Bacterial RNase P class A: a 406-nucleotide RNA from Corynebacterium marinum.
The match comes from Rfam's covariance-model search (277 bits).
Taxonomically the source falls in Corynebacterium marinum (Bacteria, Actinomycetota, Corynebacteriaceae, Corynebacterium).
Gene Ontology terms of the family: tRNA processing, dimeric ribonuclease P complex and ribonuclease P activity.
Rfam classes the family as a ribozyme.
From the family's description: Ribonuclease P (RNase P) is a ubiquitous endoribonuclease, found in archaea, bacteria and eukarya as well as chloroplasts and mitochondria.
The family's consensus secondary structure is taken from published work.
[Rfam]
RNA sequence: UGAGUCGGCCGGGUGAUCGCGGCCCCCUCACCACCCCGGGACCGGGGCAGGAGGGGGUCGAGGAAAGUCCGGACUCCACCGAGCACGGUGGUUGCUAACGGCAACCCGGGGUGACCCGCGGGCAAGUGCAACAGAAAGUAGACCGCCAGGCCGCUCCGGCGGCCGGGUAAGGGUGAAAGGGUGCGGUAAGAGCGCACCGGCGGGGCAGGUGACUGUCCCGGCCAGGUAAACCCCACCGGGAGCAAGGCAUCAUGGCCUGCCACGCCGCAGGCCGGAUCGGACGUUCGAGGGCUGCUCGCCCGAGUCCGAAGGUAGCUGCUUGAGGCGGUCAGCGAUGGCCCGCCCAGAUGGAUGAUCACCGCCCCGUCAAGGGGUACAGAAUCCGGCUUACAGGCCGACUCAUUCG
Numbered sequence: 001u002g003a004g005u006c007g008g009c010c011g012g013g014u015g016a017u018c019g020c021g022g023c024c025c026c027c028u029c030a031c032c033a034c035c036c037c038g039g040g041a042c043c044g045g046g047g048c049a050g051g052a053g054g055g056g057g058u059c060g061a062g063g064a065a066a067g068u069c070c071g072g073a074c075u076c077c078a079c080c081g082a083g084c085a086c087g088g089u090g091g092u093u094g095c096u097a098a099c100g101g102c103a104a105c106c107c108g109g110g111g112u113g114a115c116c117c118g119c120g121g122g123c124a125a126g127u128g129c130a131a132c133a134g135a136a137a138g139u140a141g142a143c144c145g146c147c148a149g150g151c152c153g154c155u156c157c158g159g160c161g162g163c164c165g166g167g168u169a170a171g172g173g174u175g176a177a178a179g180g181g182u183g184c185g186g187u188a189a190g191a192g193c194g195c196a197c198c199g200g201c202g203g204g205g206c207a208g209g210u211g212a213c214u215g216u217c218c219c220g221g222c223c224a225g226g227u228a229a230a231c232c233c234c235a236c237c238g239g240g241a242g243c244a245a246g247g248c249a250u251c252a253u254g255g256c257c258u259g260c261c262a263c264g265c266c267g268c269a270g271g272c273c274g275g276a277u278c279g280g281a282c283g284u285u286c287g288a289g290g291g292c293u294g295c296u297c298g299c300c301c302g303a304g305u306c307c308g309a310a311g312g313u314a315g316c317u318g319c320u321u322g323a324g325g326c327g328g329u330c331a332g333c334g335a336u337g338g339c340c341c342g343c344c345c346a347g348a349u350g351g352a353u354g355a356u357c358a359c360c361g362c363c364c365c366g367u368c369a370a371g372g373g374g375u376a377c378a379g380a381a382u383c384c385g386g387c388u389u390a391c392a393g394g395c396c397g398a399c400u401c402a403u404u405c406g
Stems, first nucleotide, its partner, number of pairs: 001402010011391001012360007020060009065389003069386005074242004081297004086238005091105005106120001107118004121233002126231002128227002143172002145168003149164006180198006200222001201220008246317003277309006289301004324343001327340005